[Rfam]
RNA sequence: GUCGGUGUAAUGCGGAUUGUAAUUGAUAAAGAUGAACCCGCGGGCCUGGUCGAUGCUGUGGAACAGCGGGUUCCAGUCAAACAAGGCCAGCAUCGAGCCUGGAAGGGUGUUGGCCACAAACAUCUUGCCUGAGGCGAACAUAUUCGCCCUUUG
Number, nucleotide and partner (000 for none) at each position: 001g000002u035003c034004g033005g000006u032007g000008u030009a000010a000011u000012g000013c025014g024015g023016a000017u000018u000019g000020u000021a000022a000023u015024u014025g013026a000027u000028a000029a000030a008031g000032a006033u004034g003035a002036a000037c000038c000039c055040g054041c052042g051043g050044g000045c000046c000047u000048g000049g000050u043051c042052g041053a000054u040055g039056c000057u000058g000059u000060g000061g000062a000063a000064c153065a152066g151067c000068g149069g000070g082071u081072u080073c000074c000075a000076g000077u000078c000079a000080a072081a071082c070083a000084a000085g000086g147087c146088c000089a144090g143091c000092a141093u140094c000095g000096a000097g000098c134099c133100u131101g130102g129103a000104a126105g125106g124107g123108u122109g000110u119111u118112g117113g000114c000115c000116a000117c112118a111119a110120a000121c000122a108123u107124c106125u105126u104127g000128c000129c102130u101131g100132a000133g099134g098135c000136g000137a000138a000139c000140a093141u092142a000143u090144u089145c000146g087147c086148c000149c068150u000151u066152u065153g064
RNA: Ruegeria cis2 sRNA